[Rfam]
RNA sequence: UCCAGCAGGGGUCAGCUCUCCAGACAGAAUCAUGCCUGUGAGGGUGUUACACUGCUGGGGAGGAAUGCCCUGUCUUCUUCCUCCAGUUGCUCCCUUCACUGCUCUGGUGACAUGUGGCACUGGUGCAGGCAGAACUGUGCUUCCAUGAGAGUGAGCUAAGCAUCACUUUGGUUGCUUUGUUCUAGUGAAGGAGCAGACACA
Numbered sequence: 001u002c003c004a005g006c007a008g009g010g011g012u013c014a015g016c017u018c019u020c021c022a023g024a025c026a027g028a029a030u031c032a033u034g035c036c037u038g039u040g041a042g043g044g045u046g047u048u049a050c051a052c053u054g055c056u057g058g059g060g061a062g063g064a065a066u067g068c069c070c071u072g073u074c075u076u077c078u079u080c081c082u083c084c085a086g087u088u089g090c091u092c093c094c095u096u097c098a099c100u101g102c103u104c105u106g107g108u109g110a111c112a113u114g115u116g117g118c119a120c121u122g123g124u125g126c127a128g129g130c131a132g133a134a135c136u137g138u139g140c141u142u143c144c145a146u147g148a149g150a151g152u153g154a155g156c157u158a159a160g161c162a163u164c165a166c167u168u169u170g171g172u173u174g175c176u177u178u179g180u181u182c183u184a185g186u187g188a189a190g191g192a193g194c195a196g197a198c199a200c201a
Stems, first nucleotide, its partner, number of pairs: 001059008011050002015045006021038003025034001067135001070132006081125001083123003086118005095110001097109004138195006153182003158177005
Rfam assigns this 201-nucleotide RNA sequence from Myotis lucifugus to the family "Small nucleolar RNA SNORA74".
The base pairs follow the family's consensus structure, which was predicted with PFOLD.
The match comes from Rfam's covariance-model search (108 bits).
From the family's description: U19 belongs to the H/ACA class of snoRNAs. snoRNAs bind a number of proteins (including dyskerin, Gar1p and Nop10p in the case of the H/ACA class) to form snoRNP complexes. This class are thought to guide the sites of modification of uridines to pseudouridines by forming direct base pairing interactions with substrate RNAs. Targets may include ribosomal and spliceosomal RNAs but the exact functions of many snoRNAs, including U19, are not confirmed.
For this family Rfam cites "The family of box ACA small nucleolar RNAs is defined by an evolutionarily conserved secondary structure and ubiquitous sequence elements essential for RNA accumulation" (Ganot et al., Genes Dev, 1997).
The family is grouped with related families in Rfam's "SNORA74 clan".